[Rfam]
A member of the RNA family "Actino-pnp RNA" from Nocardioides donggukensis, 64 nucleotides long. Lineage of the source: Bacteria > Actinomycetes > Propionibacteriales > Nocardioidaceae > Nocardioides.
RNA sequence: CCCGGUCCUCGGUAGUGGCCCUCAGGAAGCCUCUGCGGCCUGCGAGCCUCGAUCGAAGACCGGC
Numbered sequence: 001c002c003c004g005g006u007c008c009u010c011g012g013u014a015g016u017g018g019c020c021c022u023c024a025g026g027a028a029g030c031c032u033c034u035g036c037g038g039c040c041u042g043c044g045a046g047c048c049u050c051g052a053u054c055g056a057a058g059a060c061c062g063g064c
Base pairs, nucleotide, nucleotide: 002063003062004061005060006059007058009056010055011054012053013052017048018047019046021044023042024041025040026039030038031037